[Rfam]
RNA sequence: UGCUCGAUGAUUGUGGCCAGUAACAUUUGGCAAUAUACGCUAUUCUGAGAACUUUAAGUUCUGAUGCUAAACAACAAAUAUCUGAGAGCC
Dot-bracket structure: .((((................................................................................)))).
Numbered sequence: 001u002g003c004u005c006g007a008u009g010a011u012u013g014u015g016g017c018c019a020g021u022a023a024c025a026u027u028u029g030g031c032a033a034u035a036u037a038c039g040c041u042a043u044u045c046u047g048a049g050a051a052c053u054u055u056a057a058g059u060u061c062u063g064a065u066g067c068u069a070a071a072c073a074a075c076a077a078a079u080a081u082c083u084g085a086g087a088g089c090c
Stems, first nucleotide, its partner, number of pairs: 002089004
Background
Shown here is a 90-nucleotide RNA from Asparagus officinalis, a member of the family "Small nucleolar RNA U54". The family's consensus secondary structure was predicted with PFOLD. About the family: U54 is a C/D box small nucleolar RNA, which acts as a methylation guide for 18S ribosomal RNA in plants. On this family, see Chen et al., Nucleic Acids Res 2003: "The high diversity of snoRNAs in plants: identification and comparative study of 120 snoRNA genes from Oryza sativa". The organism belongs to Asparagus, within Eukaryota. Rfam 15.1 lists 614 matches to the family in 206 species.